[Rfam]
RNA: Burkholderia RNA 7 (anti-hemB)
RNA sequence: CCCCCGCUUUUCCUCCCUGAGCGGGUGCCUUAUGUGUGACAGCAGAAAGGCUUCCCACCCCGGCUCGAUAGCCGGGGUUUUUUUU
Numbered sequence: 001c002c003c004c005c006g007c008u009u010u011u012c013c014u015c016c017c018u019g020a021g022c023g024g025g026u027g028c029c030u031u032a033u034g035u036g037u038g039a040c041a042g043c044a045g046a047a048a049g050g051c052u053u054c055c056c057a058c059c060c061c062g063g064c065u066c067g068a069u070a071g072c073c074g075g076g077g078u079u080u081u082u083u084u085u
Base pairs, nucleotide, nucleotide: 003025004024005023006022007021008020027051028050029049030048033044034043035042058077059076060075061074062073063072064071065070